[Rfam]
Nucleotides: 136
Base pairs, nucleotide, nucleotide: 001135002134003133004132
Number, partner (000 for none) and nucleotide at each position: 001135c002134u003133g004132g005000a006000g007000u008000g009000a010000a011000g012000a013000u014000a015000u016000g017000u018000g019000c020000u021000a022000c023000u024000a025000g026000a027000g028000u029000u030000u031000g032000c033000u034000a035000g036000a037000a038000g039000u040000u041000g042000a043000g044000u045000a046000a047000u048000a049000u050000a051000a052000u053000g054000u055000g056000g057000a058000g059000c060000c061000u062000u063000a064000a065000u066000a067000g068000c069000a070000a071000g072000u073000a074000g075000u076000g077000u078000a079000c080000c081000u082000c083000u084000u085000g086000u087000u088000g089000u090000a091000g092000c093000g094000u095000g096000u097000c098000u099000u100000g101000g102000a103000u104000g105000a106000u107000a108000u109000u110000a111000c112000a113000g114000a115000g116000a117000u118000g119000u120000u121000u122000a123000a124000a125000a126000c127000u128000c129000u130000g131000a132004c133003c134002a135001g136000a
This 136-nucleotide RNA sequence from Brassica oleracea belongs to the Rfam family "small nucleolar RNA snoR127". A search with the family's covariance model found it, with a score of 53 bits. The base pairs follow the family's consensus structure, which was predicted with RNAalifold. The organism belongs to Brassica oleracea, within Eukaryota. Its family is annotated with nucleolus and RNA processing in the Gene Ontology. For this family Rfam cites "Mining small RNA sequencing data: a new approach to identify small nucleolar RNAs in Arabidopsis" (Chen and Wu, Nucleic Acids Res, 2009). Rfam 15.1 lists 273 matches to the family in 170 species.